[Rfam]
RNA: Burkholderia RNA 11
Organism: Thiomonas sp. X19
RNA sequence: GCAACCUCAAGCUGGCAGCAAGCGACCGCACGGUGCUGCAGGCGCUGCUCGCCAUUUCGUGGAUGUGGUUCUACGGCGUGGCCUUUCUCACCCAGUUCCCGGUGUUCGCCCGUCAUGUGCUG
Numbered sequence: 001g002c003a004a005c006c007u008c009a010a011g012c013u014g015g016c017a018g019c020a021a022g023c024g025a026c027c028g029c030a031c032g033g034u035g036c037u038g039c040a041g042g043c044g045c046u047g048c049u050c051g052c053c054a055u056u057u058c059g060u061g062g063a064u065g066u067g068g069u070u071c072u073a074c075g076g077c078g079u080g081g082c083c084u085u086u087c088u089c090a091c092c093c094a095g096u097u098c099c100c101g102g103u104g105u106u107c108g109c110c111c112g113u114c115a116u117g118u119g120c121u122g
Stems, first nucleotide, its partner, number of pairs: 010049003014045001021037004026032001051121001053119003057115001059113004063105003067099002071095002075091001078088001080087002